The record is an 83-nucleotide RNA from Trueperella bernardiae, which matches "ZMP/ZTP riboswitch aptamer (pfl RNA motif)" in Rfam.
[Rfam]
RNA sequence: UGGGCGGGUCGCGACUGGCGUAGGUGGUCACCACCGGGGAGCGGCACAGAAUUGACCGCGGGUCGUUCGCCUGGGCACGUGGU
Numbered sequence: 001u002g003g004g005c006g007g008g009u010c011g012c013g014a015c016u017g018g019c020g021u022a023g024g025u026g027g028u029c030a031c032c033a034c035c036g037g038g039g040a041g042c043g044g045c046a047c048a049g050a051a052u053u054g055a056c057c058g059c060g061g062g063u064c065g066u067u068c069g070c071c072u073g074g075g076c077a078c079g080u081g082g083u
Stems, first nucleotide, its partner, number of pairs: 006047001008045005015038002017071004024034004060078001062076003